[Rfam]
The record is a 71-nucleotide sequence from Natronobacterium lacisalsi, which matches "S15-Halobacteria ribosomal protein leader" in Rfam. Rfam's curators put it in the seed alignment. It is annotated as a cis-regulatory leader. A reference for the family is Eckert and Weinberg (2020), "Discovery of 20 novel ribosomal leader candidates in bacteria and archaea", BMC Microbiol.
RNA sequence: GUGGGAAGCGCACGGCCGCAAAUCCGACUCGUCACCCGUCGCUCUUGGGUGGCUUGGGAUUGCGGAAGUGC
Numbered sequence: 001g002u003g004g005g006a007a008g009c010g011c012a013c014g015g016c017c018g019c020a021a022a023u024c025c026g027a028c029u030c031g032u033c034a035c036c037c038g039u040c041g042c043u044c045u046u047g048g049g050u051g052g053c054u055u056g057g058g059a060u061u062g063c064g065g066a067a068g069u070g071c
Base pairs, nucleotide, nucleotide: 010071011070012069013068016065017064018063019062020061021060024058025057031053032052033051034050035049036048037047